[Rfam]
RNA sequence: GACAAAGGAAGAACGGCUAAGUUCGCCACGUCCUCACAAAGCUGGCGCUUUGUUUCGUGCGAUGCCUCGCUGCCGUAGCUUUCCUUGUCCUGUGGCGUCGCCGUUCUGACCCACAUCCUGUGGG
Numbered sequence: 001g002a003c004a005a006a007g008g009a010a011g012a013a014c015g016g017c018u019a020a021g022u023u024c025g026c027c028a029c030g031u032c033c034u035c036a037c038a039a040a041g042c043u044g045g046c047g048c049u050u051u052g053u054u055u056c057g058u059g060c061g062a063u064g065c066c067u068c069g070c071u072g073c074c075g076u077a078g079c080u081u082u083c084c085u086u087g088u089c090c091u092g093u094g095g096c097g098u099c100g101c102c103g104u105u106c107u108g109a110c111c112c113a114c115a116u117c118c119u120g121u122g123g124g
Base pairs, nucleotide, nucleotide: 011106012105013104014103015102016101017100025096026095027094028093029092110124111123112122113121114120